[Rfam]
RNA sequence: GGUUGCAAGUUUGCAGCCAUAGCAAAAGUGCUCAUGGCAUGGCCCUGCCAGAUUCCAAUGAAUCUGGAAAAUGUGCU
Numbered sequence: 001g002g003u004u005g006c007a008a009g010u011u012u013g014c015a016g017c018c019a020u021a022g023c024a025a026a027a028g029u030g031c032u033c034a035u036g037g038c039a040u041g042g043c044c045c046u047g048c049c050a051g052a053u054u055c056c057a058a059u060g061a062a063u064c065u066g067g068a069a070a071a072u073g074u075g076c077u
Stems, first nucleotide, its partner, number of pairs: 013045001016043003021077004026072001028040003049066007
A member of the RNA family "Mammalian CPEB3 ribozyme" from Alligator sinensis, 77 nucleotides long.
The source organism's lineage runs through Eukaryota, Eumetazoa, Tetrapoda, Archelosauria and Alligator.
A search with the family's covariance model found it, with a score of 38 bits.